Source information:
A member of the RNA family "Bacterial small subunit ribosomal RNA" from Pelosinus sp. UFO1, 591 nucleotides of a longer RNA. A search with the family's covariance model found it, with a score of 1602 bits.
RNA sequence: UGACGGGGGCCCGCACAAGCGGUGGAGUAUGUGGUUUAAUUCGACGCAACGCGAAGAACCUUACCAAGGCUUGACAUCGUCUGAUGAUCCUAGAGAUAGGAAGUUCUCCUUCGGGAGACAGAUAGACAGGUGGUGCAUGGCUGUCGUCAGCUCGUGUCGUGAGAUGUUGGGUUAAGUCCCGCAACGAGCGCAACCCUUAUCCUAUGUUGCCAGCACGUAAUGGUGGGAACUCAUGGGAGACUGCCGUGGAUAACACGGAGGAAGGUGGGGAUGACGUCAAGUCAUCAUGCCCCUUAUGUCUUGGGCUACACACGUACUACAAUGGGCUUUAAUAGAGGGUAGCGAAGCCGCGAGGUGAAGCCAAACCCAAAAACAAGCUCUCAGUUCGGAUUGCAGGCUGCAACUCGCCUGCAUGAAGUCGGAAUCGCUAGUAAUCGCAGAUCAGCAUGCUGCGGUGAAUACGUUCCCGGGCCUUGUACACACCGCCCGUCACACCACGAAAGUUGAGAGCACCCGAAGCCGGUGAGGUAACCAGCAAUGGAACCAGCCGUCGAAGGUGAGAUCAGUGAUUGGGGUGAAGUCGUAACAAGG
Numbered sequence: 001u002g003a004c005g006g007g008g009g010c011c012c013g014c015a016c017a018a019g020c021g022g023u024g025g026a027g028u029a030u031g032u033g034g035u036u037u038a039a040u041u042c043g044a045c046g047c048a049a050c051g052c053g054a055a056g057a058a059c060c061u062u063a064c065c066a067a068g069g070c071u072u073g074a075c076a077u078c079g080u081c082u083g084a085u086g087a088u089c090c091u092a093g094a095g096a097u098a099g100g101a102a103g104u105u106c107u108c109c110u111u112c113g114g115g116a117g118a119c120a121g122a123u124a125g126a127c128a129g130g131u132g133g134u135g136c137a138u139g140g141c142u143g144u145c146g147u148c149a150g151c152u153c154g155u156g157u158c159g160u161g162a163g164a165u166g167u168u169g170g171g172u173u174a175a176g177u178c179c180c181g182c183a184a185c186g187a188g189c190g191c192a193a194c195c196c197u198u199a200u201c202c203u204a205u206g207u208u209g210c211c212a213g214c215a216c217g218u219a220a221u222g223g224u225g226g227g228a229a230c231u232c233a234u235g236g237g238a239g240a241c242u243g244c245c246g247u248g249g250a251u252a253a254c255a256c257g258g259a260g261g262a263a264g265g266u267g268g269g270g271a272u273g274a275c276g277u278c279a280a281g282u283c284a285u286c287a288u289g290c291c292c293c294u295u296a297u298g299u300c301u302u303g304g305g306c307u308a309c310a311c312a313c314g315u316a317c318u319a320c321a322a323u324g325g326g327c328u329u330u331a332a333u334a335g336a337g338g339g340u341a342g343c344g345a346a347g348c349c350g351c352g353a354g355g356u357g358a359a360g361c362c363a364a365a366c367c368c369a370a371a372a373a374c375a376a377g378c379u380c381u382c383a384g385u386u387c388g389g390a391u392u393g394c395a396g397g398c399u400g401c402a403a404c405u406c407g408c409c410u411g412c413a414u415g416a417a418g419u420c421g422g423a424a425u426c427g428c429u430a431g432u433a434a435u436c437g438c439a440g441a442u443c444a445g446c447a448u449g450c451u452g453c454g455g456u457g458a459a460u461a462c463g464u465u466c467c468c469g470g471g472c473c474u475u476g477u478a479c480a481c482a483c484c485g486c487c488c489g490u491c492a493c494a495c496c497a498c499g500a501a502a503g504u505u506g507a508g509a510g511c512a513c514c515c516g517a518a519g520c521c522g523g524u525g526a527g528g529u530a531a532c533c534a535g536c537a538a539u540g541g542a543a544c545c546a547g548c549c550g551u552c553g554a555a556g557g558u559g560a561g562a563u564c565a566g567u568g569a570u571u572g573g574g575g576u577g578a579a580g581u582c583g584u585a586a587c588a589a590g591g
Stems, first nucleotide, its partner, number of pairs: 001480002003477003007474007015464002019428005024320001026318008034309002040055004064304007077126002079123005088101005105118004129293002132291004138287002140282003143278001145276002150189006156165003168181004195270004200238007210227002214225003241261002244258005324380006337368003342361002347356003387418001392413007434456007483590001485587001488583002493577004498572003503567005511559004519552001521550004527545003532541002
Pairs were carried over by alignment from the consensus structure, which is taken from published work.